[Rfam]
Shown here is a 77-nucleotide RNA sequence from Citrobacter sp. JGM124, a member of the family "tpke11". About the family: In Yersinia located in ICR upstream dnaJ (chaperone)gene. Has temperature responsive RNA structure. Rfam classes the family as a small RNA. The family's consensus secondary structure was predicted with WAR. On this family, see Rivas et al., Curr Biol 2001: "Computational identification of noncoding RNAs in E. coli by comparative genomics". The source organism's lineage runs through Bacteria, Pseudomonadati, Pseudomonadota, Gammaproteobacteria and Citrobacter. Gene Ontology term of the family: response to temperature stimulus.
RNA sequence: AGCGGUUAAUACCUGACACGGGCGUUGAGGUUUAUCCUCCACGCCCGUUUAUGCAUAUUUAGGGCUAAAACAAGAGA
Numbered sequence: 001a002g003c004g005g006u007u008a009a010u011a012c013c014u015g016a017c018a019c020g021g022g023c024g025u026u027g028a029g030g031u032u033u034a035u036c037c038u039c040c041a042c043g044c045c046c047g048u049u050u051a052u053g054c055a056u057a058u059u060u061a062g063g064g065c066u067a068a069a070a071c072a073a074g075a076g077a
Stems, first nucleotide, its partner, number of pairs: 003015003016050001018048007027039003